[Rfam]
RNA sequence: UGGAAAUGAUGAAAUUGAGGUCAUGGGAUAGAAGGGUGUAUGUAUGCAAGAAACAGGGUGGAGGUCUUUAUUUUAAUUAAAAUUAAGGGGUGUGUGUGUGUGUGUGUGUGUGUAGGUAGGGCGGCUAUAUAUGGUGCAGACUGUGGGUACUGAAAAAAGCUGCUGAUUUCGGAGUGCAUCUGAGGCACUGUUGCUAAAAAUUAUGGGGCAUUUUCUGCAGCAUUGCCAGUGAUUAGAGCCCCAAGUAAGCCCAUAGUUUGCACCAAGAGAUUGUAAACCUCUAACAGGUUCAUUUUGUCAUAAUGUACCUUGUGAUCUGAUCUAA
Numbered sequence: 001u002g003g004a005a006a007u008g009a010u011g012a013a014a015u016u017g018a019g020g021u022c023a024u025g026g027g028a029u030a031g032a033a034g035g036g037u038g039u040a041u042g043u044a045u046g047c048a049a050g051a052a053a054c055a056g057g058g059u060g061g062a063g064g065u066c067u068u069u070a071u072u073u074u075a076a077u078u079a080a081a082a083u084u085a086a087g088g089g090g091u092g093u094g095u096g097u098g099u100g101u102g103u104g105u106g107u108g109u110g111u112g113u114a115g116g117u118a119g120g121g122c123g124g125c126u127a128u129a130u131a132u133g134g135u136g137c138a139g140a141c142u143g144u145g146g147g148u149a150c151u152g153a154a155a156a157a158a159g160c161u162g163c164u165g166a167u168u169u170c171g172g173a174g175u176g177c178a179u180c181u182g183a184g185g186c187a188c189u190g191u192u193g194c195u196a197a198a199a200a201u202u203a204u205g206g207g208g209c210a211u212u213u214u215c216u217g218c219a220g221c222a223u224u225g226c227c228a229g230u231g232a233u234u235a236g237a238g239c240c241c242c243a244a245g246u247a248a249g250c251c252c253a254u255a256g257u258u259u260g261c262a263c264c265a266a267g268a269g270a271u272u273g274u275a276a277a278c279c280u281c282u283a284a285c286a287g288g289u290u291c292a293u294u295u296u297g298u299c300a301u302a303a304u305g306u307a308c309c310u311u312g313u314g315a316u317c318u319g320a321u322c323u324a325a
Stems, first nucleotide, its partner, number of pairs: 001324004189222006197212002201208002
RNA: Small Cajal body-specific RNA 7
Organism: Pogona vitticeps